Description: The family of this 102-nucleotide RNA from Jeotgalibacillus sp. S-D1 is "Purine riboswitch aptamer". For this family Rfam cites "Structure of a natural guanine-responsive riboswitch complexed with the metabolite hypoxanthine" (Batey et al., Nature, 2004). NCBI's taxonomy places the organism under Bacteria, Bacillati, Bacillota, Bacilli, Jeotgalibacillus. The family's consensus secondary structure is taken from published work.
[Rfam]
RNA sequence: UAUAAAUUGAAUAGCAAUUGUCGUAUAACAUCGGGAAUAGGGCCCGAAAGUUUCUACCAAGCCACCGUAAAUGGCUUGACUACGAGGUAUUGAAUCAGUUGA
Numbered sequence: 001u002a003u004a005a006a007u008u009g010a011a012u013a014g015c016a017a018u019u020g021u022c023g024u025a026u027a028a029c030a031u032c033g034g035g036a037a038u039a040g041g042g043c044c045c046g047a048a049a050g051u052u053u054c055u056a057c058c059a060a061g062c063c064a065c066c067g068u069a070a071a072u073g074g075c076u077u078g079a080c081u082a083c084g085a086g087g088u089a090u091u092g093a094a095u096c097a098g099u100u101g102a
Base pairs, nucleotide, nucleotide: 019087021085022084023083024082025081031047032046033045034044035043058078059077060076061075062074063073064072